Shown here is a 212-nucleotide RNA sequence, a member of the family "Streptomyces RNA 1601".
About the family: Identified by deep sequencing of transcriptome at the end of exponential growth phase. Appears longer on northern blot than sequencing transcript. Streptomyces specific.
Rfam classes the family as a small RNA.

[Rfam]
RNA sequence: GACGACCGGCUGGACACGACUCGUGAUCCGGCCCACAAGUGGAGGCUCCGAUCUCCCACCUGGCCGUCCCUCGGGACGGCGGGUCACCGGUCAGGUGGCGCCCAUCGUUCCGUACGGACGAUGGAGCCGCCCGAUGUGCGCCCCGCGGUACGCCGUGGCGGUGCUCCGGUAGCACGAGGAGCCCCGCCUGUGUCCCGUCCGGGGCAUUUUUC
Numbered sequence: 001g002a003c004g005a006c007c008g009g010c011u012g013g014a015c016a017c018g019a020c021u022c023g024u025g026a027u028c029c030g031g032c033c034c035a036c037a038a039g040u041g042g043a044g045g046c047u048c049c050g051a052u053c054u055c056c057c058a059c060c061u062g063g064c065c066g067u068c069c070c071u072c073g074g075g076a077c078g079g080c081g082g083g084u085c086a087c088c089g090g091u092c093a094g095g096u097g098g099c100g101c102c103c104a105u106c107g108u109u110c111c112g113u114a115c116g117g118a119c120g121a122u123g124g125a126g127c128c129g130c131c132c133g134a135u136g137u138g139c140g141c142c143c144c145g146c147g148g149u150a151c152g153c154c155g156u157g158g159c160g161g162u163g164c165u166c167c168g169g170u171a172g173c174a175c176g177a178g179g180a181g182c183c184c185c186g187c188c189u190g191u192g193u194c195c196c197g198u199c200c201g202g203g204g205c206a207u208u209u210u211u212c
Base pairs, nucleotide, nucleotide: 004092005091006090007089008088009087012029013028030085031084032083033082034081036062037061039059040058041057042056043054044053063080064079065078066077067076068075069074094131095130096129097128098127102124103123104122105121106120107119108118109117140205141204142203143202144201145200146197147196148195154192155191156190157188158187159186160185161184163182164181165180166179167178
It scores 178 bits against the family's covariance model. For this family Rfam cites "Deep sequencing-based identification of small non-coding RNAs in Streptomyces coelicolor" (Vockenhuber et al., RNA Biol, 2011).